[Rfam]
Nucleotides: 128
Stems, first nucleotide, its partner, number of pairs: 005052006013044004021036004067121001069119002072116002078109004086100003
Number, partner (000 for none) and nucleotide at each position: 001000g002000u003000u004000c005052g006051u007050u008049g009048a010047a011000a012000a013044u014043c015042a016041u017000c018000c019000c020000c021036g022035g023034c024033u025000u026000u027000g028000g029000c030000c031000g032000u033024g034023g035022c036021c037000g038000u039000g040000g041016g042015u043014g044013a045000g046000a047010u048009u049008c050007g051006g052005c053000g054000c055000c056000c057000a058000g059000a060000g061000c062000c063000u064000c065000c066000a067121g068000g069119g070118g071000c072116c073115u074000c075000a076000g077000c078109u079108c080107a081106c082000c083000a084000c085000c086100c087099a088098c089000u090000g091000a092000u093000c094000c095000a096000g097000u098088g099087u100086g101000g102000g103000a104000c105000a106081g107080u108079g109078a110000a111000a112000c113000c114000c115073a116072g117000a118070c119069c120000c121067c122000g123000a124000c125000a126000a127000g128000c

The family of this 128-nucleotide sequence from Castor canadensis is "Small nucleolar RNA ACA64". It scores 128 bits against the family's covariance model.